The family of this 87-nucleotide RNA sequence from a Gemmatimonadaceae bacterium is "c-di-GMP-I riboswitch aptamer".
RNA sequence: ACGCGACAAGGCCAUACCCGGCGAAAGCCGGCGACGGAAAGCUGCGGGGCUACGGCGGAACAUCGCUAUGCCAGCCGGGCUGCCGAA
Numbered sequence: 001a002c003g004c005g006a007c008a009a010g011g012c013c014a015u016a017c018c019c020g021g022c023g024a025a026a027g028c029c030g031g032c033g034a035c036g037g038a039a040a041g042c043u044g045c046g047g048g049g050c051u052a053c054g055g056c057g058g059a060a061c062a063u064c065g066c067u068a069u070g071c072c073a074g075c076c077g078g079g080c081u082g083c084c085g086a087a
Stems, first nucleotide, its partner, number of pairs: 012037002018031005040081004045077003048072003055066004
Lineage of the source: Bacteria > Pseudomonadati > Gemmatimonadia > Gemmatimonadales > Gemmatimonadaceae.